RNA sequence: AAAUAGAAAAAAGUAAGUAAGGGAAGUCGGCAAAAUAGAUCCGUAACUUCGGGAAAAGGAUUGGCUCUGAGGGCAUAGAGUAAAGAAGCUAAAGUUAACGUUUGAAAUAAGACAUUAUGAAUGCUUAUGGUUCGCUAUAUGUAUUUAUAUUAUCCGUUUUUCUUAUGUUUUUUUAUCUAACCUUUAUUCGCGACCAUAUAAAAACUCUCCAUCAUGCCUCUUUCGCAUGGGUUGUAGUUUUAAUAUGGUAUAUAAAUGCCAACUCAGAACUGAAACGGACAAAGGGAAUCCGACUGUUUAAUUAAAACAUAGCUUUGUGAAAAGCCAGAAAUGGUAUUAACACAAAGUGAUUUCUGCCCAGUGCUUUGAAUGUCAAAUUGAUGAAAUUCAAUCAAGCGCAGGUAAACGGCGGGAGUAACUAUGACUCUCUUAAGGUAGCCAAAUGCCUCGUCAUCUAAUUAGUGACGCGCAUGAAUGGAUUAACGAGAUUCCCACUGUCCCUACUUGCUAUCUAGCGAAACCACAGCCAAGGGAACGGGCUUGGCCAA
Numbered sequence: 001a002a003a004u005a006g007a008a009a010a011a012a013g014u015a016a017g018u019a020a021g022g023g024a025a026g027u028c029g030g031c032a033a034a035a036u037a038g039a040u041c042c043g044u045a046a047c048u049u050c051g052g053g054a055a056a057a058g059g060a061u062u063g064g065c066u067c068u069g070a071g072g073g074c075a076u077a078g079a080g081u082a083a084a085g086a087a088g089c090u091a092a093a094g095u096u097a098a099c100g101u102u103u104g105a106a107a108u109a110a111g112a113c114a115u116u117a118u119g120a121a122u123g124c125u126u127a128u129g130g131u132u133c134g135c136u137a138u139a140u141g142u143a144u145u146u147a148u149a150u151u152a153u154c155c156g157u158u159u160u161u162c163u164u165a166u167g168u169u170u171u172u173u174u175a176u177c178u179a180a181c182c183u184u185u186a187u188u189c190g191c192g193a194c195c196a197u198a199u200a201a202a203a204a205c206u207c208u209c210c211a212u213c214a215u216g217c218c219u220c221u222u223u224c225g226c227a228u229g230g231g232u233u234g235u236a237g238u239u240u241u242a243a244u245a246u247g248g249u250a251u252a253u254a255a256a257u258g259c260c261a262a263c264u265c266a267g268a269a270c271u272g273a274a275a276c277g278g279a280c281a282a283a284g285g286g287a288a289u290c291c292g293a294c295u296g297u298u299u300a301a302u303u304a305a306a307a308c309a310u311a312g313c314u315u316u317g318u319g320a321a322a323a324g325c326c327a328g329a330a331a332u333g334g335u336a337u338u339a340a341c342a343c344a345a346a347g348u349g350a351u352u353u354c355u356g357c358c359c360a361g362u363g364c365u366u367u368g369a370a371u372g373u374c375a376a377a378u379u380g381a382u383g384a385a386a387u388u389c390a391a392u393c394a395a396g397c398g399c400a401g402g403u404a405a406a407c408g409g410c411g412g413g414a415g416u417a418a419c420u421a422u423g424a425c426u427c428u429c430u431u432a433a434g435g436u437a438g439c440c441a442a443a444u445g446c447c448u449c450g451u452c453a454u455c456u457a458a459u460u461a462g463u464g465a466c467g468c469g470c471a472u473g474a475a476u477g478g479a480u481u482a483a484c485g486a487g488a489u490u491c492c493c494a495c496u497g498u499c500c501c502u503a504c505u506u507g508c509u510a511u512c513u514a515g516c517g518a519a520a521c522c523a524c525a526g527c528c529a530a531g532g533g534a535a536c537g538g539g540c541u542u543g544g545c546c547a548a
Base pairs, nucleotide, nucleotide: 004514005513006512007511012509013508014507015506016505017504018503019502021500022499023498038062039061040060041059042058047052063271064270066268067267068266069265070264071263072260073259074258075257076256077249080246081245082244085241087178088177090175091174092173093172099167100166101165104161105160106159107158111154112153114151116149117148118147119146120145121144122143123142124141126139127138128137129136130135272276284493285492286491287490288489289488290487291485292484295309296308297307312348313347314346315345316344317343318342319341322337324335325334326333327332352479353478354477356410357409358408361407362406363403364402365401366400368399371398372397373396378391379390380389381388411429412428413427414426415425416424430434450466451465452464453463454462527544528543529542530541531540